[Rfam]
This 61-nucleotide RNA from Lupinus albus belongs to the Rfam family "Plastid-psbN 5UTR RNA". Plastid psbN is a non-coding RNA (ncRNA) recognised in plastids. It was reported as a conserved 11 stem-loop in the prime untranslated region (5UTR) of psbN genes. It has been reported that the motif is retained in a subset of mature transcripts in barley, which can suggests a possible role in transcript alternative 5 prime processing.
RNA sequence: UGCAACACCCAUCAAAUGAGUAGUUCCCCACCAUGAAGUUACUUUACUAUAUUACAAAAUC
Dot-bracket structure: .................((((((((.(.......).)))))))).................

Pairs were carried over by alignment from the consensus structure, which was predicted with LocARNA. The match comes from Rfam's covariance-model search (55 bits). NCBI's taxonomy places the organism under Eukaryota, Euphyllophyta, Magnoliopsida, Fabaceae, Lupinus.